[Rfam]
RNA sequence: AGGAAUGGAUGUCAGCCUAACAGCGUCGCAUCGUGCGACAACAGGUGACUGACCCACUUCCUGGAGG
Numbered sequence: 001a002g003g004a005a006u007g008g009a010u011g012u013c014a015g016c017c018u019a020a021c022a023g024c025g026u027c028g029c030a031u032c033g034u035g036c037g038a039c040a041a042c043a044g045g046u047g048a049c050u051g052a053c054c055c056a057c058u059u060c061c062u063g064g065a066g067g
Stems, first nucleotide, its partner, number of pairs: 011049004016044001025039005053067002057063001